[Rfam]
RNA sequence: UUUAGCUCUGAUUGUCCAAACGCAAUUCUUGAUCGAUUUAAAAUAUUUCAAGGGUUGUGACUGGACAUCGUGGCUCGA
Numbered sequence: 001u002u003u004a005g006c007u008c009u010g011a012u013u014g015u016c017c018a019a020a021c022g023c024a025a026u027u028c029u030u031g032a033u034c035g036a037u038u039u040a041a042a043a044u045a046u047u048u049c050a051a052g053g054g055u056u057g058u059g060a061c062u063g064g065a066c067a068u069c070g071u072g073g074c075u076c077g078a
Base pairs, nucleotide, nucleotide: 002077004075005074006073007072009070010069011068012067014066015065016064017063018062021059022058023057024056025055026054027053028052029051030050031049
Dot-bracket structure: .(.((((.((((.(((((..(((((((((((.................)))))))))))..))))))))).)))).).
mir-219 microRNA precursor family: a 78-nucleotide RNA sequence from Bactrocera dorsalis. NCBI's taxonomy places the organism under Eukaryota, Pancrustacea, Dicondylia, Acalyptratae, Bactrocera dorsalis complex. A search with the family's covariance model found it, with a score of 75 bits. Pairs were carried over by alignment from the consensus structure, which was predicted with RNAalifold.